[Rfam]
Annotation: The family of this 70-nucleotide RNA sequence from Phyllobacterium endophyticum is "S-element". The match comes from Rfam's covariance-model search (54 bits). This family represents a group of S-elements from p42d and related plasmids. The S-element has multiple functions and is believed to act as a negative regulator of repC transcription, be required for efficient replication and act as a translational enhancer of repC. By type it is a cis-regulatory element. The literature on the family includes a 2004 paper in Mol Microbiol by Venkova-Canova et al., "Two discrete elements are required for the replication of a repABC plasmid: an antisense RNA and a stem-loop structure". Lineage of the source: Bacteria > Pseudomonadati > Pseudomonadota > Hyphomicrobiales > Phyllobacterium.
RNA sequence: UGUCAAGACUCUUGAUCGUCGUUUUGGCGCACGGAAUUCUUUUGCCUUUUUGAAAAGGUGAAUGGAGAUG
Numbered sequence: 001u002g003u004c005a006a007g008a009c010u011c012u013u014g015a016u017c018g019u020c021g022u023u024u025u026g027g028c029g030c031a032c033g034g035a036a037u038u039c040u041u042u043u044g045c046c047u048u049u050u051u052g053a054a055a056a057g058g059u060g061a062a063u064g065g066a067g068a069u070g
Base pairs, nucleotide, nucleotide: 009067010066011065012062013061017060018059019058020057022056023055024054025053026050027049029047032044033043034042035041
Dot-bracket structure: ........(((((...((((.((((((.(..((((.....))))..).))..))))))))))..)))...

Rfam 15.1 lists 231 matches to the family in 124 species.